A member of the RNA family "MIR807 microRNA precursor family" from Oryza barthii, 176 nucleotides long. A reference for the family is Luo et al. (2006), "Rice embryogenic calli express a unique set of microRNAs, suggesting regulatory roles of microRNAs in plant post-embryogenic development", FEBS Lett. The family has 30 seed sequences and 1,514 matches in Rfam 15.1.
[Rfam]
RNA sequence: AACCACACUAUCGAUGAAUGGAUUCACCCGUGAGAUGACGUGGUUGUUCCAUCUAGGAUAGAGACGUGGCAUCCUGUUAAUUUUAUGCGAUGGCUAGUAAUAUGAUGCCAUGUCCUCGUACUAUGUGAAACAACCACAUCAUCUCGCAAGUGAAUCCAUUCAUUGAUAGUGUGGUU
Numbered sequence: 001a002a003c004c005a006c007a008c009u010a011u012c013g014a015u016g017a018a019u020g021g022a023u024u025c026a027c028c029c030g031u032g033a034g035a036u037g038a039c040g041u042g043g044u045u046g047u048u049c050c051a052u053c054u055a056g057g058a059u060a061g062a063g064a065c066g067u068g069g070c071a072u073c074c075u076g077u078u079a080a081u082u083u084u085a086u087g088c089g090a091u092g093g094c095u096a097g098u099a100a101u102a103u104g105a106u107g108c109c110a111u112g113u114c115c116u117c118g119u120a121c122u123a124u125g126u127g128a129a130a131c132a133a134c135c136a137c138a139u140c141a142u143c144u145c146g147c148a149a150g151u152g153a154a155u156c157c158a159u160u161c162a163u164u165g166a167u168a169g170u171g172u173g174g175u176u
Stems, first nucleotide, its partner, number of pairs: 001176007009168007017160003021156007030147004035142004041136008051126002054123002058119001063114003069108005075102005086097001